Source information:
Shown here is a 90-nucleotide RNA from Haemonchus contortus, a member of the family "mir-5892 microRNA precursor family". It is one of the family's seed sequences. Gene Ontology terms of the family: miRNA-mediated post-transcriptional gene silencing and RISC complex. Rfam 15.1 lists 2 matches to the family in 2 species.

RNA sequence: GGUCCUGAAGUUUGCUCAGAUGAUCCAGAUGUUAGUCGCCCGCAUGGAAAGCAAUUAACAUUUGGAUCAUCUGAGCGAUAUUCGAGGAUG
Numbered sequence: 001g002g003u004c005c006u007g008a009a010g011u012u013u014g015c016u017c018a019g020a021u022g023a024u025c026c027a028g029a030u031g032u033u034a035g036u037c038g039c040c041c042g043c044a045u046g047g048a049a050a051g052c053a054a055u056u057a058a059c060a061u062u063u064g065g066a067u068c069a070u071c072u073g074a075g076c077g078a079u080a081u082u083c084g085a086g087g088a089u090g
Stems, first nucleotide, its partner, number of pairs: 002089005007083003012078025038052002040047002